[Rfam]
RNA sequence: AGACGUCACCCGACGCACACCACGGCAGGAGCGGGGGACCCAGGUAAGUCGCCGCGGACGUCUCGUCCGCGGCUUGGGGUGAAGCCGUGCCACAGCACGGCCGGGCGACUCCGGCCCGAACCCGACAGCUCACCUCGCAGGCGUGGGAGAGGACCA
Dot-bracket structure: ..............................((((((....(((((..........................)))))(((.....((((........))))..((((.......))))...))).........))))))..................
Numbered sequence: 001a002g003a004c005g006u007c008a009c010c011c012g013a014c015g016c017a018c019a020c021c022a023c024g025g026c027a028g029g030a031g032c033g034g035g036g037g038a039c040c041c042a043g044g045u046a047a048g049u050c051g052c053c054g055c056g057g058a059c060g061u062c063u064c065g066u067c068c069g070c071g072g073c074u075u076g077g078g079g080u081g082a083a084g085c086c087g088u089g090c091c092a093c094a095g096c097a098c099g100g101c102c103g104g105g106c107g108a109c110u111c112c113g114g115c116c117c118g119a120a121c122c123c124g125a126c127a128g129c130u131c132a133c134c135u136c137g138c139a140g141g142c143g144u145g146g147g148a149g150a151g152g153a154c155c156a
Stems, first nucleotide, its partner, number of pairs: 031138006041076005077123003085100004103117004